The record is a 54-nucleotide RNA sequence from Salvelinus namaycush, which matches "UnaL2 LINE 3' element" in Rfam. The family's consensus secondary structure is taken from published work. The family's RNA type in Rfam is cis-regulatory element. The literature on the family includes a 2004 paper in RNA by Baba et al., "Solution structure of an RNA stem-loop derived from the 3' conserved region of eel LINE UnaL2". Rfam links the family to the GO term transposition, RNA-mediated. Lineage of the source: Eukaryota > Craniata > Actinopteri > Salmoniformes > Salvelinus.

RNA sequence: UCCACGCAUGACUAUGAGUCGCUUUGGAUAAAAGCAUCUGCUAAAUGGUAUAUA
Number, nucleotide and partner (000 for none) at each position: 001u000002c000003c000004a000005c000006g000007c000008a000009u000010g000011a000012c000013u043014a000015u040016g039017a000018g000019u000020c000021g035022c034023u033024u032025u031026g000027g000028a000029u000030a000031a025032a024033a023034g022035c021036a000037u000038c000039u016040g015041c000042u000043a013044a000045a000046u000047g000048g000049u000050a000051u000052a000053u000054a000